[Rfam]
Nucleotides: 067
Stems, first nucleotide, its partner, number of pairs: 001067008010058004015053007026045003030041001
Number, partner (000 for none) and nucleotide at each position: 001067a002066g003065u004064a005063g006062g007061a008060g009000a010058g011057a012056g013055a014000g015053g016052a017051a018050g019049g020048c021047u022000u023000u024000u025000g026045a027044c028043u029000u030041g031000u032000u033000u034000u035000u036000a037000u038000c039000u040000c041030u042000c043028a044027g045026u046000c047021a048020g049019u050018c051017u052016u053015u054000u055013u056012c057011u058010c059000u060008c061007u062006c063005c064004u065003a066002u067001u